[Rfam]
RNA sequence: UCGCUGUGAUGACUUCUUAGGACACCUUUGGAUUCUCCAUGAAAAUAAACUGAGAUUUCUGAGCGAC
Numbered sequence: 001u002c003g004c005u006g007u008g009a010u011g012a013c014u015u016c017u018u019a020g021g022a023c024a025c026c027u028u029u030g031g032a033u034u035c036u037c038c039a040u041g042a043a044a045a046u047a048a049a050c051u052g053a054g055a056u057u058u059c060u061g062a063g064c065g066a067c
Stems, first nucleotide, its partner, number of pairs: 001066004